[Rfam]
RNA sequence: GUGGGAUGAGGUAGUAGGUUGUAUAGUUUUAGGGUCACACCCGCACUUGGAGAUGACUAUUCAACUUACUGUCUUUCUCAA
Numbered sequence: 001g002u003g004g005g006a007u008g009a010g011g012u013a014g015u016a017g018g019u020u021g022u023a024u025a026g027u028u029u030u031a032g033g034g035u036c037a038c039a040c041c042c043g044c045a046c047u048u049g050g051a052g053a054u055g056a057c058u059a060u061u062c063a064a065c066u067u068a069c070u071g072u073c074u075u076u077c078u079c080a081a
Base pairs, nucleotide, nucleotide: 002080003079004078005077006076008075009074010073011072012071013070014069015068016067017066018065019064020063021062023060024059025058026057027056032042033041034040035039

Shown here is an 81-nucleotide sequence from Sparus aurata, a member of the family "let-7 microRNA precursor family". For this family Rfam cites "microRNAs: tiny regulators with great potential" (Ambros, Cell, 2001). Rfam's curators write: This family represents the microRNAs (miRNA) let-7 and mir-98. let-7 was identified from a study of developmental timing in C. elegans, and was later shown to be part of a much larger class of non-coding RNAs termed miRNAs.